RNA sequence: CGAGGUCUUUGUGUACCCCGUGCGUCCCCACUUGUGACGCACACAUGGGGAAUGGACAGGACCGAG
Numbered sequence: 001c002g003a004g005g006u007c008u009u010u011g012u013g014u015a016c017c018c019c020g021u022g023c024g025u026c027c028c029c030a031c032u033u034g035u036g037a038c039g040c041a042c043a044c045a046u047g048g049g050g051a052a053u054g055g056a057c058a059g060g061a062c063c064g065a066g
Stems, first nucleotide, its partner, number of pairs: 004063006016050005023039004
Background: Trypanosomatid snoRNA TB9Cs4H1: a 66-nucleotide RNA sequence from Leishmania braziliensis. The organism belongs to Leishmania braziliensis, within Eukaryota. For this family Rfam cites "A genome-wide analysis of C/D and H/ACA-like small nucleolar RNAs in Trypanosoma brucei reveals a trypanosome-specific pattern of rRNA modification" (Liang et al., RNA, 2005). Pairs were carried over by alignment from the consensus structure, which was predicted with WAR.